c-di-GMP-I-GGC riboswitch aptamer: a 78-nucleotide RNA sequence from Govanella unica.
The match comes from Rfam's covariance-model search (64 bits).
The organism belongs to Govanella, within Bacteria.
The family's consensus secondary structure is taken from published work.
RNA sequence: AACGAUAAAGGCAAACCGUCGGCAACGGCGGGACGCAAAUCCUCCGGUCCCAGAUGCGGGAUAGCGGGGUUGCCGAAC
Numbered sequence: 001a002a003c004g005a006u007a008a009a010g011g012c013a014a015a016c017c018g019u020c021g022g023c024a025a026c027g028g029c030g031g032g033a034c035g036c037a038a039a040u041c042c043u044c045c046g047g048u049c050c051c052a053g054a055u056g057c058g059g060g061a062u063a064g065c066g067g068g069g070u071u072g073c074c075g076a077a078c
Base pairs, nucleotide, nucleotide: 003075004074011036012035016031017030018029019028020027021026034064039071041069042068044067045066046065047062048061049060